[Rfam]
RNA sequence: AGUCAUAUGCUUGUCUCAAAGCUUAAGCCAUGCAAGUCUCAGUACAAACUGUUUUAAAGUGAAACCGCAAAAGGCUCAGUAAACCAGUCAUGAUUCACUCGAGUAUACAUGACUGUCUUUGGAUAACUGUGGUAAUCCUAGAGCUAAUACAUGCAAUCAAGUCCCGACCAGUCUAACUGGGAAGGACGCUUUUAUUAGAUCAAGACCAAUCGCCCGGCUCGUUCGGGCGUUGCCUUGGUGACUCUAGGUAACACAUCAGAUCGCACGGUCCUCGCACCGGCGACUUAUCCUUCAAAUGCCUGACUUAUCAACUGUCGAUGGUAGACUCUAUGUCUACCAUGGUUGUAACGGGUAACGGGGAAUCAGGGUUCGAUUCCGGAGAGGGAGCCUGAGAAACGGCUACCACAUCCAAGGAAGGCAGCAGGCACGCAAAUUACCCACUCCCGGCACGGGGAGGUAGUGACAAAAAAUAACGAUACGGGACUCUUAUGAGGCCCCGUAAUCGGAAUGAGUACACUUUAAAUCCUUUAACAAGGAUCCAUUGAAGGGCAAGUCUGGUGCCAGCAGCCGCGGUAAUUCCAGCUUCAAUAGCGUAUAUUA
Numbered sequence: 001a002g003u004c005a006u007a008u009g010c011u012u013g014u015c016u017c018a019a020a021g022c023u024u025a026a027g028c029c030a031u032g033c034a035a036g037u038c039u040c041a042g043u044a045c046a047a048a049c050u051g052u053u054u055u056a057a058a059g060u061g062a063a064a065c066c067g068c069a070a071a072a073g074g075c076u077c078a079g080u081a082a083a084c085c086a087g088u089c090a091u092g093a094u095u096c097a098c099u100c101g102a103g104u105a106u107a108c109a110u111g112a113c114u115g116u117c118u119u120u121g122g123a124u125a126a127c128u129g130u131g132g133u134a135a136u137c138c139u140a141g142a143g144c145u146a147a148u149a150c151a152u153g154c155a156a157u158c159a160a161g162u163c164c165c166g167a168c169c170a171g172u173c174u175a176a177c178u179g180g181g182a183a184g185g186a187c188g189c190u191u192u193u194a195u196u197a198g199a200u201c202a203a204g205a206c207c208a209a210u211c212g213c214c215c216g217g218c219u220c221g222u223u224c225g226g227g228c229g230u231u232g233c234c235u236u237g238g239u240g241a242c243u244c245u246a247g248g249u250a251a252c253a254c255a256u257c258a259g260a261u262c263g264c265a266c267g268g269u270c271c272u273c274g275c276a277c278c279g280g281c282g283a284c285u286u287a288u289c290c291u292u293c294a295a296a297u298g299c300c301u302g303a304c305u306u307a308u309c310a311a312c313u314g315u316c317g318a319u320g321g322u323a324g325a326c327u328c329u330a331u332g333u334c335u336a337c338c339a340u341g342g343u344u345g346u347a348a349c350g351g352g353u354a355a356c357g358g359g360g361a362a363u364c365a366g367g368g369u370u371c372g373a374u375u376c377c378g379g380a381g382a383g384g385g386a387g388c389c390u391g392a393g394a395a396a397c398g399g400c401u402a403c404c405a406c407a408u409c410c411a412a413g414g415a416a417g418g419c420a421g422c423a424g425g426c427a428c429g430c431a432a433a434u435u436a437c438c439c440a441c442u443c444c445c446g447g448c449a450c451g452g453g454g455a456g457g458u459a460g461u462g463a464c465a466a467a468a469a470a471u472a473a474c475g476a477u478a479c480g481g482g483a484c485u486c487u488u489a490u491g492a493g494g495c496c497c498c499g500u501a502a503u504c505g506g507a508a509u510g511a512g513u514a515c516a517c518u519u520u521a522a523a524u525c526c527u528u529u530a531a532c533a534a535g536g537a538u539c540c541a542u543u544g545a546a547g548g549g550c551a552a553g554u555c556u557g558g559u560g561c562c563a564g565c566a567g568c569c570g571c572g573g574u575a576a577u578u579c580c581a582g583c584u585u586c587a588a589u590a591g592c593g594u595a596u597a598u599u600a
Stems, first nucleotide, its partner, number of pairs: 001599003005596007014468001016466001020461001021428001027426003031423003036068002042065002048060002075381003085302003090297002094295002101289002118153001120151002127143002130140003161187004168180004192251005205239004220229003261283004266279004304352003311343003318340008356378004360371004383404002386401003406417001408415002434459001436458003442454005474505003477501006484493003512532002514529001516528001542588006555582004564571002